[Rfam]
RNA: UnaL2 LINE 3' element
RNA sequence: UUAAUGCACUAAUGUAAGUCGCUCUGGAUAAGAGAAUCUGCUAAAUGACUAAAA
Numbered sequence: 001u002u003a004a005u006g007c008a009c010u011a012a013u014g015u016a017a018g019u020c021g022c023u024c025u026g027g028a029u030a031a032g033a034g035a036a037u038c039u040g041c042u043a044a045a046u047g048a049c050u051a052a053a054a
Stems, first nucleotide, its partner, number of pairs: 013043001014041003022034004